[Rfam]
RNA: Purine riboswitch aptamer
RNA sequence: GACGAUUUCAUAUCGAUCAGUCGUAUAUCUUCGGGAAUUGGCCCGAAGGUCUCUACGGGGAGCCUUAACUUCCCAGCUACGACCGGGUUCUUUUGCGGU
Dot-bracket structure: .................(.((((((...(((((((......))))))).........(((((.......)))))...)))))).)..............
Numbered sequence: 001g002a003c004g005a006u007u008u009c010a011u012a013u014c015g016a017u018c019a020g021u022c023g024u025a026u027a028u029c030u031u032c033g034g035g036a037a038u039u040g041g042c043c044c045g046a047a048g049g050u051c052u053c054u055a056c057g058g059g060g061a062g063c064c065u066u067a068a069c070u071u072c073c074c075a076g077c078u079a080c081g082a083c084c085g086g087g088u089u090c091u092u093u094u095g096c097g098g099u
Stems, first nucleotide, its partner, number of pairs: 018085001020083006029048007058074005